[Rfam]
RNA sequence: AACAAUCUCCUGAUGCUGCCUGAGUGUUUUUCUUCCACUCCAGCAUCAGUGAUUUUGUUG
Numbered sequence: 001a002a003c004a005a006u007c008u009c010c011u012g013a014u015g016c017u018g019c020c021u022g023a024g025u026g027u028u029u030u031u032c033u034u035c036c037a038c039u040c041c042a043g044c045a046u047c048a049g050u051g052a053u054u055u056u057g058u059u060g
Base pairs, nucleotide, nucleotide: 001059002058003057004056005055008052009051010049011048012047013046014045015044016043017042018041

A member of the RNA family "mir-338 microRNA precursor family" from Ictalurus punctatus, 60 nucleotides long. Rfam's curators put it in the seed alignment. The family's consensus secondary structure was predicted with RNAalifold.